[Rfam]
RNA sequence: AACCGCACCUCAAGGUGAAAGAUAAAGAUGACAGGAAGUGCCGGUAGGUUUGGCAUACGCCAUUCUCGACAGCAGGGACUACAGGAAAAGCAGACAA
Dot-bracket structure: .....((((....)))).....................(((.....(...(((......)))....)....))).......................

RT-17 RNA: a 97-nucleotide RNA sequence. The family's RNA type in Rfam is small RNA. Pairs were carried over by alignment from the consensus structure, which is taken from published work.